[Rfam]
RNA: Small nucleolar RNA SNORD72
RNA sequence: AGCUUAUCAAUGAUGUCCAAAAAUAAAUGUCUGAACAAAUGACUUUACUGUGAUUUCAGAUUUUUACUGAGGUAAGCU
Numbered sequence: 001a002g003c004u005u006a007u008c009a010a011u012g013a014u015g016u017c018c019a020a021a022a023a024u025a026a027a028u029g030u031c032u033g034a035a036c037a038a039a040u041g042a043c044u045u046u047a048c049u050g051u052g053a054u055u056u057c058a059g060a061u062u063u064u065u066a067c068u069g070a071g072g073u074a075a076g077c078u
Base pairs, nucleotide, nucleotide: 002077003076004075005074006073007072008071